[Rfam]
RNA sequence: CCGGUGGUUGAAACCACCGGCUCUACGAUGCCAUCCCUUUGGGAUU
Numbered sequence: 001c002c003g004g005u006g007g008u009u010g011a012a013a014c015c016a017c018c019g020g021c022u023c024u025a026c027g028a029u030g031c032c033a034u035c036c037c038u039u040u041g042g043g044a045u046u
Stems, first nucleotide, its partner, number of pairs: 001020008033045005

This 46-nucleotide RNA from Desulfonatronum sp. SC1 belongs to the Rfam family "Acido-Lenti-1 RNA". The family's consensus secondary structure is taken from published work. By type it is a small RNA. The family has 87 seed sequences and 2,607 matches in Rfam 15.1. NCBI's taxonomy places the organism under Bacteria, Thermodesulfobacteriota, Desulfovibrionales, Desulfonatronaceae, Desulfonatronum.